Record summary:
Rfam assigns this 79-nucleotide RNA sequence from Menidia menidia to the family "mir-130 microRNA precursor family". Rfam links the family to the GO terms miRNA-mediated post-transcriptional gene silencing and RISC complex. The base pairs follow the family's consensus structure, which was predicted with PFOLD.
RNA sequence: UGUCGUCCACUGCCCUUUUUCUGUUGCACUACUGGACAUUGAGAUGAGCAGUGCAAUAUUAAAAGGGCAUUGGCUGAUG
Numbered sequence: 001u002g003u004c005g006u007c008c009a010c011u012g013c014c015c016u017u018u019u020u021c022u023g024u025u026g027c028a029c030u031a032c033u034g035g036a037c038a039u040u041g042a043g044a045u046g047a048g049c050a051g052u053g054c055a056a057u058a059u060u061a062a063a064a065g066g067g068c069a070u071u072g073g074c075u076g077a078u079g
Stems, first nucleotide, its partner, number of pairs: 001079003005074001007073003012068008022058009